mraW RNA: a 111-nucleotide RNA sequence from Cryptosporangium aurantiacum. The organism belongs to Cryptosporangium, within Bacteria.
Nucleotides: 111
Base pairs, nucleotide, nucleotide: 010098011097013095014094015093018090019089021087022086023085024084025083027081028080029079030078031077032076034074035073036072043068044067045066046065047064048063049062050061
Number, partner (000 for none) and nucleotide at each position: 001000g002000g003000a004000c005000g006000a007000c008000c009000g010098u011097g012000a013095c014094g015093u016000g017000a018090g019089g020000u021087c022086u023085c024084c025083a026000g027081c028080c029079g030078c031077u032076u033000g034074g035073c036072g037000g038000u039000u040000u041000c042000u043068c044067c045066u046065g047064g048063c049062g050061c051000a052000c053000c054000u055000u056000c057000c058000c059000c060000g061050g062049c063048g064047c065046c066045a067044g068043g069000c070000c071000a072036c073035g074034c075000g076032a077031a078030g079029c080028g081027g082000a083025u084024g085023g086022g087021g088000a089019c090018c091000u092000g093015g094014c095013g096000a097011c098010a099000c100000g101000g102000u103000c104000a105000g106000c107000c108000a109000c110000c111000c